Description
Shown here is a 101-nucleotide sequence from Flavobacterium noncentrifugens, a member of the family "Flavo-1 RNA".

RNA sequence: CCCUAGCCCCGAUUGAAGCGGAAAUCCUUUUUUAUGGGUUUACUGUAGCGCAGCGGAAGGAAAAUCUAUAAAAAAGAUUGCAGCGCAAAGCGGGAAAUAGC
Number, nucleotide and partner (000 for none) at each position: 001c000002c000003c000004u000005a000006g000007c000008c000009c093010c092011g091012a000013u089014u088015g000016a000017a000018g084019c083020g000021g000022a000023a079024a078025u077026c076027c000028u000029u074030u073031u072032u071033u070034a069035u068036g067037g066038g065039u064040u063041u062042a000043c000044u000045g000046u000047a000048g000049c000050g000051c000052a000053g000054c000055g000056g000057a000058a000059g000060g000061a000062a041063a040064a039065u038066c037067u036068a035069u034070a033071a032072a031073a030074a029075a000076g026077a025078u024079u023080g000081c000082a000083g019084c018085g000086c000087a000088a014089a013090g000091c011092g010093g009094g000095a000096a000097a000098u000099a000100g000101c000